[Rfam]
RNA sequence: UAGCAGCGGUAACACUACUGCAGUGAGGUCUGGGCUCUGGAGUAUUGUUUCUGCUGCCAGG
Numbered sequence: 001u002a003g004c005a006g007c008g009g010u011a012a013c014a015c016u017a018c019u020g021c022a023g024u025g026a027g028g029u030c031u032g033g034g035c036u037c038u039g040g041a042g043u044a045u046u047g048u049u050u051c052u053g054c055u056g057c058c059a060g061g
Base pairs, nucleotide, nucleotide: 003057004056005055006054007053008052009051011049012048013047014046016044018042019041021039022038023037026036027035
The family of this 61-nucleotide RNA from Tupaia belangeri is "mir-503 microRNA precursor family". Its family is annotated with miRNA-mediated post-transcriptional gene silencing and RISC complex in the Gene Ontology. Pairs were carried over by alignment from the consensus structure, which was predicted with RNAalifold. For this family Rfam cites "Cloning, characterization and expression analysis of porcine microRNAs" (Reddy et al., BMC Genomics, 2009). The organism belongs to Tupaia belangeri, within Eukaryota.